Record summary
This 82-nucleotide sequence from Taxus chinensis belongs to the Rfam family "Small nucleolar RNA U54". From the family's description: U54 is a C/D box small nucleolar RNA, which acts as a methylation guide for 18S ribosomal RNA in plants.
[Rfam]
RNA sequence: AGCUCGAGGAUUUGUUGCCUUACGGCAAUAUACGCUAUGCUGAGAUUUAUUCCUUUGAUGAAAGAUCAAUAAGCUGAGAGCU
Number, nucleotide and partner (000 for none) at each position: 001a082002g081003c080004u079005c078006g000007a000008g000009g000010a000011u000012u000013u000014g000015u000016u000017g000018c000019c000020u000021u000022a000023c000024g000025g000026c000027a000028a000029u000030a000031u000032a000033c000034g000035c000036u000037a000038u000039g000040c000041u000042g000043a000044g000045a000046u000047u000048u000049a000050u000051u000052c000053c000054u000055u000056u000057g000058a000059u000060g000061a000062a000063a000064g000065a000066u000067c000068a000069a000070u000071a000072a000073g000074c000075u000076g000077a000078g005079a004080g003081c002082u001